Overview:
The record is a 141-nucleotide RNA sequence from Cannabis sativa, which matches "MIR398 microRNA precursor family" in Rfam. Lineage of the source: Eukaryota > Streptophyta > Magnoliopsida > Pentapetalae > Cannabis. It scores 69 bits against the family's covariance model.

RNA sequence: GUACAUCCCAGAGGUGUGGCCCCUGGGAGCACAAGGUGGGUUUGCCUUUUGCUUAAUUUGUUACUUGUUACCAUUUUUGUUGGUGCAAUGUACUUAAGGCUAAUGCGCCUUGUGUUCUCAGGUCACCCCUUUGGGGAUACC
Numbered sequence: 001g002u003a004c005a006u007c008c009c010a011g012a013g014g015u016g017u018g019g020c021c022c023c024u025g026g027g028a029g030c031a032c033a034a035g036g037u038g039g040g041u042u043u044g045c046c047u048u049u050u051g052c053u054u055a056a057u058u059u060g061u062u063a064c065u066u067g068u069u070a071c072c073a074u075u076u077u078u079g080u081u082g083g084u085g086c087a088a089u090g091u092a093c094u095u096a097a098g099g100c101u102a103a104u105g106c107g108c109c110u111u112g113u114g115u116u117c118u119c120a121g122g123u124c125a126c127c128c129c130u131u132u133g134g135g136g137a138u139a140c141c
Stems, first nucleotide, its partner, number of pairs: 007135002011131004016126004025119014